[Rfam]
RNA sequence: CUACUUAUCUGGCAGUGGAGAUACCAUGAUCACAAAAGUUGUUUUCACAGGGUGAGGCUUAUCCAUUGUAUUCCAGAUAUGCUGACCCCUGCGAUUUUCCCAAUUGCGGGAAACUUGACUGCAUGAUUUGUGUUAGCGGUGGACUGCAUUCACAAUCUCCCA
Numbered sequence: 001c002u003a004c005u006u007a008u009c010u011g012g013c014a015g016u017g018g019a020g021a022u023a024c025c026a027u028g029a030u031c032a033c034a035a036a037a038g039u040u041g042u043u044u045u046c047a048c049a050g051g052g053u054g055a056g057g058c059u060u061a062u063c064c065a066u067u068g069u070a071u072u073c074c075a076g077a078u079a080u081g082c083u084g085a086c087c088c089c090u091g092c093g094a095u096u097u098u099c100c101c102a103a104u105u106g107c108g109g110g111a112a113a114c115u116u117g118a119c120u121g122c123a124u125g126a127u128u129u130g131u132g133u134u135a136g137c138g139g140u141g142g143a144c145u146g147c148a149u150u151c152a153c154a155a156u157c158u159c160c161c162a
Base pairs, nucleotide, nucleotide: 012122013121014120015119018046019045020044021043023042024041026039027038049090050089051088052087054086056083057082058081060079061078062077063076092117093116094115095113096112097111099109100108138160139159141157143156145154146153
RNA: U1 spliceosomal RNA